[Rfam]
RNA: SAH (S-adenosyl-L-homocysteine) riboswitch aptamer
Organism: Sphaerotilus mobilis
RNA sequence: GUUUUCGAGGAGCGUUGCAAGGCCGGACCCGUGUGGUUCGCCCCAGGCUCGAAGACCCUUGAAUGGCCAACGGCGCUCACCCGCU
Numbered sequence: 001g002u003u004u005u006c007g008a009g010g011a012g013c014g015u016u017g018c019a020a021g022g023c024c025g026g027a028c029c030c031g032u033g034u035g036g037u038u039c040g041c042c043c044c045a046g047g048c049u050c051g052a053a054g055a056c057c058c059u060u061g062a063a064u065g066g067c068c069a070a071c072g073g074c075g076c077u078c079a080c081c082c083g084c085u
Stems, first nucleotide, its partner, number of pairs: 002055007021042003025038002